[Rfam]
RNA sequence: GGUUUCCAUUGGUGCAAAUCCCAUCACCUCCAUUUGAGAUGAAAAGCAAUUCCCCAUUGGUAGCAAGUCGUAUCCAUUAAGCGGGGAAUUU
Numbered sequence: 001g002g003u004u005u006c007c008a009u010u011g012g013u014g015c016a017a018a019u020c021c022c023a024u025c026a027c028c029u030c031c032a033u034u035u036g037a038g039a040u041g042a043a044a045a046g047c048a049a050u051u052c053c054c055c056a057u058u059g060g061u062a063g064c065a066a067g068u069c070g071u072a073u074c075c076a077u078u079a080a081g082c083g084g085g086g087a088a089u090u091u
Stems, first nucleotide, its partner, number of pairs: 009023001011021002052086004056077002059074004064070001
Dot-bracket structure: ........(.((.......)).)............................((((((.((((.(.....))))).)).....)))).....